[Rfam]
Shown here is a 202-nucleotide sequence from Clostridium magnum, a member of the family "T-box leader". The source organism's lineage runs through Bacteria, Bacillati, Eubacteriales, Clostridiaceae and Clostridium magnum. Rfam classes the family as a cis-regulatory leader.
RNA sequence: AAAUUGCCUAUGAAGAGAAAUAGUAACAUAAUUAAAGGUUAAGAGAGUCAGUGGUUGGUGUGAACUGAUGCCUAUUAUUUUGUGAAUCCAUCUCCGAGGAUAUUACGAUGAGUAAUACGGUUAAAACCGUUAUUUUAAAUGAGAGAAUCAUAAUUUUAUUGUGAUUAAUAAGGGUGGCAACGCGAAGUCAAUCGUCCCUACU
Numbered sequence: 001a002a003a004u005u006g007c008c009u010a011u012g013a014a015g016a017g018a019a020a021u022a023g024u025a026a027c028a029u030a031a032u033u034a035a036a037g038g039u040u041a042a043g044a045g046a047g048u049c050a051g052u053g054g055u056u057g058g059u060g061u062g063a064a065c066u067g068a069u070g071c072c073u074a075u076u077a078u079u080u081u082g083u084g085a086a087u088c089c090a091u092c093u094c095c096g097a098g099g100a101u102a103u104u105a106c107g108a109u110g111a112g113u114a115a116u117a118c119g120g121u122u123a124a125a126a127c128c129g130u131u132a133u134u135u136u137a138a139a140u141g142a143g144a145g146a147a148u149c150a151u152a153a154u155u156u157u158a159u160u161g162u163g164a165u166u167a168a169u170a171a172g173g174g175u176g177g178c179a180a181c182g183c184g185a186a187g188u189c190a191a192u193c194g195u196c197c198c199u200a201c202u
Stems, first nucleotide, its partner, number of pairs: 007099002015094004026083003030079002037072003047069006102116005118129003146166007171199004182195004